[Rfam]
RNA sequence: UGCAAGUUUCUCUCACAGUGGUCUUCCAAGCGUUUGUGGCUUUGACGAAAUUGCCUGAAGGCAUCACUGAUGCACUCAG
Numbered sequence: 001u002g003c004a005a006g007u008u009u010c011u012c013u014c015a016c017a018g019u020g021g022u023c024u025u026c027c028a029a030g031c032g033u034u035u036g037u038g039g040c041u042u043u044g045a046c047g048a049a050a051u052u053g054c055c056u057g058a059a060g061g062c063a064u065c066a067c068u069g070a071u072g073c074a075c076u077c078a079g
Stems, first nucleotide, its partner, number of pairs: 001074004